Shown here is a 77-nucleotide sequence from Holdemanella biformis, a member of the family "Fluoride riboswitch aptamer (crcB RNA motif)". The family has 289 seed sequences and 2,293 matches in Rfam 15.1. The base pairs follow the family's consensus structure, which is taken from published work. Lineage of the source: Bacteria > Bacillota > Erysipelotrichaceae > Holdemanella > Holdemanella biformis.

[Rfam]
RNA sequence: AAUCUUUUUGGGAAUGAAGUUCUCCCUUAGUUUAAAACUAAAACCGCUUUUUAUAGGCUGAUGACUUCUGUGUUUUU
Numbered sequence: 001a002a003u004c005u006u007u008u009u010g011g012g013a014a015u016g017a018a019g020u021u022c023u024c025c026c027u028u029a030g031u032u033u034a035a036a037a038c039u040a041a042a043a044c045c046g047c048u049u050u051u052u053a054u055a056g057g058c059u060g061a062u063g064a065c066u067u068c069u070g071u072g073u074u075u076u077u
Stems, first nucleotide, its partner, number of pairs: 010025003016068006046058004